[Rfam]
RNA sequence: AGACCACUUCCUAUUGGGAGUUAAGGCCAUACGGACAGCCGGGUCGAAUGCCGA
Numbered sequence: 001a002g003a004c005c006a007c008u009u010c011c012u013a014u015u016g017g018g019a020g021u022u023a024a025g026g027c028c029a030u031a032c033g034g035a036c037a038g039c040c041g042g043g044u045c046g047a048a049u050g051c052c053g054a
Stems, first nucleotide, its partner, number of pairs: 002045004006021006

The family of this 54-nucleotide sequence from Neobacillus mesonae is "Streptococcus sRNA SpF59 (ldcC RNA)". The family's RNA type in Rfam is small RNA. The literature on the family includes a 2012 paper in PLoS Pathog by Mann et al., "Control of virulence by small RNAs in Streptococcus pneumoniae".